This 108-nucleotide sequence from Devosia sp. Root685 belongs to the Rfam family "Rhizobiales sRNA Atu_At1".
[Rfam]
RNA sequence: GGUCAGUUUGCGUCAACUGGACACGGUGGCAAAGGGAACGAGGAUGGUUUUUCCAGUUUCCCGCCUCGACCAACGAAAUGGUAGCCGAGCCCUUAUCCCACCCGAACU
Number, nucleotide and partner (000 for none) at each position: 001g000002g000003u000004c000005a000006g107007u106008u105009u104010g000011c000012g022013u021014c020015a000016a000017c000018u000019g000020g014021a013022c012023a000024c000025g102026g101027u100028g098029g097030c000031a000032a000033a093034g092035g091036g090037a000038a000039c068040g067041a066042g065043g064044a000045u000046g062047g000048u000049u000050u000051u000052u000053c000054c000055a000056g000057u000058u000059u000060c000061c000062c046063g000064c043065c042066u041067c040068g039069a082070c081071c080072a000073a000074c000075g000076a000077a000078a000079u000080g071081g070082u069083a000084g000085c000086c000087g000088a000089g000090c036091c035092c034093u033094u000095a000096u000097c029098c028099c000100a027101c026102c025103c000104g009105a008106a007107c006108u000